This 80-nucleotide RNA from Paspalum vaginatum belongs to the Rfam family "Small nucleolar RNA U54". On this family, see Chen et al., Nucleic Acids Res 2003: "The high diversity of snoRNAs in plants: identification and comparative study of 120 snoRNA genes from Oryza sativa". Rfam classes the family as a C/D-box small nucleolar RNA. Rfam links the family to the GO terms nucleolus and RNA processing. Lineage of the source: Eukaryota > Mesangiospermae > Petrosaviidae > Paspalinae > Paspalum.
[Rfam]
RNA sequence: AGCUCAGUGAUGGCAGCCAAUUACAAUGACAAUAUAUGCUAUGCUGACCAAAGUCUGAUGACAAGCAGAGUAUGAGAGCU
Numbered sequence: 001a002g003c004u005c006a007g008u009g010a011u012g013g014c015a016g017c018c019a020a021u022u023a024c025a026a027u028g029a030c031a032a033u034a035u036a037u038g039c040u041a042u043g044c045u046g047a048c049c050a051a052a053g054u055c056u057g058a059u060g061a062c063a064a065g066c067a068g069a070g071u072a073u074g075a076g077a078g079c080u
Base pairs, nucleotide, nucleotide: 001080002079003078004077005076